[Rfam]
Overview: Shown here is a 245-nucleotide sequence from Agrilus planipennis, a member of the family "Arthropod 7SK RNA". The family's consensus secondary structure is taken from published work.
RNA sequence: GGAGAUGUGUGUCUGUGAUGGCACAGCUGAACAUCGAUCGCUGGUUAAUCUAGGCAGAUCUGCUCAGUGGGUGGCGUCACUAGCCUGUUUCCCGUAGCUAUGAACGAUGCCGAUGCCUCGUCGCUCGGUGUCGGUCCUGGCUCCUUUCUCAUAACGUUACGGUUUUCCAAAAUUAGGGGGGGUCCGGCUAAUUUAGAACAUCUCCAUAUAAGAGGCACUACGCGUGGUAGUCUGCCAUUUUUUCA
Dot-bracket structure: ((((((((......(((((.......(((..((..(((((((..........))).))))))..)))........))))).....................................................................................................................))))))))........((((((((.....)))))..))).........
Numbered sequence: 001g002g003a004g005a006u007g008u009g010u011g012u013c014u015g016u017g018a019u020g021g022c023a024c025a026g027c028u029g030a031a032c033a034u035c036g037a038u039c040g041c042u043g044g045u046u047a048a049u050c051u052a053g054g055c056a057g058a059u060c061u062g063c064u065c066a067g068u069g070g071g072u073g074g075c076g077u078c079a080c081u082a083g084c085c086u087g088u089u090u091c092c093c094g095u096a097g098c099u100a101u102g103a104a105c106g107a108u109g110c111c112g113a114u115g116c117c118u119c120g121u122c123g124c125u126c127g128g129u130g131u132c133g134g135u136c137c138u139g140g141c142u143c144c145u146u147u148c149u150c151a152u153a154a155c156g157u158u159a160c161g162g163u164u165u166u167c168c169a170a171a172a173u174u175a176g177g178g179g180g181g182g183u184c185c186g187g188c189u190a191a192u193u194u195a196g197a198a199c200a201u202c203u204c205c206a207u208a209u210a211a212g213a214g215g216c217a218c219u220a221c222g223c224g225u226g227g228u229a230g231u232c233u234g235c236c237a238u239u240u241u242u243u244c245a
Stems, first nucleotide, its partner, number of pairs: 001205008015080005027067003032062002036060004040055003214236003217231005

Description:
The source organism's lineage runs through Eukaryota, Bilateria, Insecta, Dicondylia and Agrilus.